[Rfam]
RNA sequence: GCCAGAUCAUGACGACUUGCGCAGAAACCCACCCGUGGGCCGCGCAAGGCCGAGCUCUCCUGGC
Numbered sequence: 001g002c003c004a005g006a007u008c009a010u011g012a013c014g015a016c017u018u019g020c021g022c023a024g025a026a027a028c029c030c031a032c033c034c035g036u037g038g039g040c041c042g043c044g045c046a047a048g049g050c051c052g053a054g055c056u057c058u059c060c061u062g063g064c
Stems, first nucleotide, its partner, number of pairs: 001064005014050001016048007029038003
A member of the RNA family "Selenocysteine insertion sequence 1" from Monodelphis domestica, 64 nucleotides long. Rfam describes the family as follows. The incorporation of selenocysteine into a protein sequence is directed by an in-frame UGA codon (usually a stop codon) within the coding region of the mRNA. Selenoprotein mRNAs contain a conserved secondary structure in the 3' UTR that is required for the distinction of UGA stop from UGA selenocysteine. The selenocysteine insertion sequence (SECIS) is around 60 nt in length and adopts a hairpin structure which is sufficiently well-defined and conserved to act as a computational screen for selenoprotein genes. It scores 38 bits against the family's covariance model. By type it is a cis-regulatory element. For this family Rfam cites "A survey of metazoan selenocysteine insertion sequences" (Lambert et al., Biochimie, 2002). Pairs were carried over by alignment from the consensus structure, which is taken from published work.